[Rfam]
Overview:
Rfam assigns this 126-nucleotide RNA from Kosakonia cowanii to the family "Phenylalanine leader peptide". The family's consensus secondary structure was predicted with CMfinder. Rfam links the family to the GO term cellular amino acid metabolic process. The family has 71 seed sequences and 379 matches in Rfam 15.1. Lineage of the source: Bacteria > Pseudomonadati > Enterobacteriaceae > Kosakonia > Kosakonia cowanii. On this family, see Zurawski et al., Proc Natl Acad Sci U S A 1978: "Nucleotide sequence of the leader region of the phenylalanine operon of Escherichia coli".
RNA sequence: GAUGAAAACCACCCCGUUUCUCUUCGCACUCUUUUUUACCUUCCCCAGUUAGGGAGGCGAUUCGUUUUGUGAGAAAAAGUGCGAAGACGAACAAUAAAGCCUCCCAAGCCGGGAGGCUUUUUUAUU
Numbered sequence: 001g002a003u004g005a006a007a008a009c010c011a012c013c014c015c016g017u018u019u020c021u022c023u024u025c026g027c028a029c030u031c032u033u034u035u036u037u038a039c040c041u042u043c044c045c046c047a048g049u050u051a052g053g054g055a056g057g058c059g060a061u062u063c064g065u066u067u068u069g070u071g072a073g074a075a076a077a078a079g080u081g082c083g084a085a086g087a088c089g090a091a092c093a094a095u096a097a098a099g100c101c102u103c104c105c106a107a108g109c110c111g112g113g114a115g116g117c118u119u120u121u122u123u124a125u126u
Stems, first nucleotide, its partner, number of pairs: 016092004021087010032076003036072004042055004056066004096120010